RNA sequence: UAUUUCCUUCAUCCCAAAAUGAAAAAAUCUAGUACAUUAUGUGUUUGACAUAUCCUGUACUAGAUUUGUUUAUUUUGGGACGGAGGGAGUAU
Numbered sequence: 001u002a003u004u005u006c007c008u009u010c011a012u013c014c015c016a017a018a019a020u021g022a023a024a025a026a027a028u029c030u031a032g033u034a035c036a037u038u039a040u041g042u043g044u045u046u047g048a049c050a051u052a053u054c055c056u057g058u059a060c061u062a063g064a065u066u067u068g069u070u071u072a073u074u075u076u077g078g079g080a081c082g083g084a085g086g087g088a089g090u091a092u
Base pairs, nucleotide, nucleotide: 001091002090003089004088005087006086007085008084009083010082012080013079014078015077016076017075018074019073020072021071022070023069025067026066027065028064029063030062031061032060033059034058035057041055043053
The record is a 92-nucleotide RNA from Oryza sativa, which matches "MIR1862 microRNA precursor family" in Rfam. The base pairs follow the family's consensus structure, which was predicted with RNAalifold. Rfam's curators put it in the seed alignment. Rfam links the family to the GO terms miRNA-mediated post-transcriptional gene silencing and RISC complex.